[Rfam]
RNA sequence: CGACUACGUUACUAUUAGUAAUAACUCUGUUGAUUGUGAUUUGCCAUAGAGAUGUGAGGACAUAUGAGGCAAGAUAAUCAUUUUGGUUAUGGUGUCUCUAGGUAGUUAGCAGGUACUGAACAGUACCUGCUGAUUACCAAUGUUUUAUAGAAUGAGAUAG
Numbered sequence: 001c002g003a004c005u006a007c008g009u010u011a012c013u014a015u016u017a018g019u020a021a022u023a024a025c026u027c028u029g030u031u032g033a034u035u036g037u038g039a040u041u042u043g044c045c046a047u048a049g050a051g052a053u054g055u056g057a058g059g060a061c062a063u064a065u066g067a068g069g070c071a072a073g074a075u076a077a078u079c080a081u082u083u084u085g086g087u088u089a090u091g092g093u094g095u096c097u098c099u100a101g102g103u104a105g106u107u108a109g110c111a112g113g114u115a116c117u118g119a120a121c122a123g124u125a126c127c128u129g130c131u132g133a134u135u136a137c138c139a140a141u142g143u144u145u146u147a148u149a150g151a152a153u154g155a156g157a158u159a160g
Stems, first nucleotide, its partner, number of pairs: 008022005025049002058145003062141001066098006074090001076088004101138017
Streptococcus sRNA sagA: a 160-nucleotide RNA from Streptococcus porcinus. The sequence is in the family's curated seed alignment. The organism belongs to Streptococcus porcinus, within Bacteria. Rfam classes the family as a small RNA. The literature on the family includes a 2013 paper in PLoS One by Tesorero et al., "Novel Regulatory Small RNAs in Streptococcus pyogenes".